A member of the RNA family "freshwater-2 RNA", 87 nucleotides long. The family's RNA type in Rfam is cis-regulatory element.
[Rfam]
RNA sequence: CUCAACACCAAUGUUGAGACUUAUGCGGAUAACCACCGCGUACCAAGUAGAACUUGGAUUGGACUCCUAAAAAGGAGAAAACAAAUG
Numbered sequence: 001c002u003c004a005a006c007a008c009c010a011a012u013g014u015u016g017a018g019a020c021u022u023a024u025g026c027g028g029a030u031a032a033c034c035a036c037c038g039c040g041u042a043c044c045a046a047g048u049a050g051a052a053c054u055u056g057g058a059u060u061g062g063a064c065u066c067c068u069a070a071a072a073a074g075g076a077g078a079a080a081a082c083a084a085a086u087g
Stems, first nucleotide, its partner, number of pairs: 001018006022042007043057004